SAM/SAH riboswitch aptamer: a 49-nucleotide RNA sequence from Tropicimonas sediminicola.
RNA sequence: AGUCCGUCACAACGGCUUCCUGGCGUGGCGGCGUAACCUCAAUGGAGCA
Numbered sequence: 001a002g003u004c005c006g007u008c009a010c011a012a013c014g015g016c017u018u019c020c021u022g023g024c025g026u027g028g029c030g031g032c033g034u035a036a037c038c039u040c041a042a043u044g045g046a047g048c049a
Stems, first nucleotide, its partner, number of pairs: 004031007013022002015048003019045002

The literature on the family includes a 2019 paper in Nucleic Acids Res by Weickhmann et al., "The structure of the SAM/SAH-binding riboswitch". Rfam links the family to the GO terms regulation of gene expression and S-adenosylmethionine metabolic process. The base pairs follow the family's consensus structure, which is taken from published work.